[Rfam]
RNA sequence: AAGAAAAAAUCGAAAAAGCCGUAGACAGCAGGUGCAUUUAUUUGCGUAAGUCCUGCCGAGGAGAUUGCUGAAAUUGAGCUAUAAGCCUCUUUGUCUAUGUGCAAAGAGGCUUUCUUUAUUGAUAA
Numbered sequence: 001a002a003g004a005a006a007a008a009a010u011c012g013a014a015a016a017a018g019c020c021g022u023a024g025a026c027a028g029c030a031g032g033u034g035c036a037u038u039u040a041u042u043u044g045c046g047u048a049a050g051u052c053c054u055g056c057c058g059a060g061g062a063g064a065u066u067g068c069u070g071a072a073a074u075u076g077a078g079c080u081a082u083a084a085g086c087c088u089c090u091u092u093g094u095c096u097a098u099g100u101g102c103a104a105a106g107a108g109g110c111u112u113u114c115u116u117u118a119u120u121g122a123u124a125a
Stems, first nucleotide, its partner, number of pairs: 028056005034045003085110010